[Rfam]
RNA sequence: AACCCGUGAUGUGGGACUCUUUAAACCGCUCCCACGCCUCAUAGAAAGUCUCACCAUCAUCCUGCUAGAACGAAAGAAUCCGAGCUCUCAUCUUCGAAGUU
Numbered sequence: 001a002a003c004c005c006g007u008g009a010u011g012u013g014g015g016a017c018u019c020u021u022u023a024a025a026c027c028g029c030u031c032c033c034a035c036g037c038c039u040c041a042u043a044g045a046a047a048g049u050c051u052c053a054c055c056a057u058c059a060u061c062c063u064g065c066u067a068g069a070a071c072g073a074a075a076g077a078a079u080c081c082g083a084g085c086u087c088u089c090a091u092c093u094u095c096g097a098a099g100u101u
Base pairs, nucleotide, nucleotide: 001101003099005096006095044061045060
Rfam assigns this 101-nucleotide RNA from Mikania micrantha to the family "Plant small nucleolar RNA R71".
For this family Rfam cites "Plant snoRNAs: functional evolution and new modes of gene expression" (Brown et al., Trends Plant Sci, 2003).
Rfam links the family to the GO terms RNA processing and nucleolus.
The match comes from Rfam's covariance-model search (45 bits).